A member of the RNA family "mir-399 microRNA precursor family" from Setaria italica, 106 nucleotides long. About the family: mir-399 was identified in both Arabidopsis thaliana and Oryza sativa computationally and was later experimentally verified. mir-399 is thought to target mRNAs coding for a phosphatase transporter. The mature sequence is excised from the 3' arm of the hairpin. The base pairs follow the family's consensus structure, which was predicted with PFOLD. Lineage of the source: Eukaryota > Embryophyta > Liliopsida > Petrosaviidae > Setaria.
RNA sequence: CCACGCAUUACUGGGUGGGUCUCCUUUGGCAGUGACCUGGCUGAUGAGCUACGUGCUGCGCAGUCGCGCAGACACCGCCAAAGGAGAAUUGCCCAGCAAUGCAGCU
Numbered sequence: 001c002c003a004c005g006c007a008u009u010a011c012u013g014g015g016u017g018g019g020u021c022u023c024c025u026u027u028g029g030c031a032g033u034g035a036c037c038u039g040g041c042u043g044a045u046g047a048g049c050u051a052c053g054u055g056c057u058g059c060g061c062a063g064u065c066g067c068g069c070a071g072a073c074a075c076c077g078c079c080a081a082a083g084g085a086g087a088a089u090u091g092c093c094c095a096g097c098a099a100u101g102c103a104g105c106u
Base pairs, nucleotide, nucleotide: 005102006101007100008099009098011096012095013094014093015092016091017090018089021086022085023084024083027080028079029078030077032075033074034073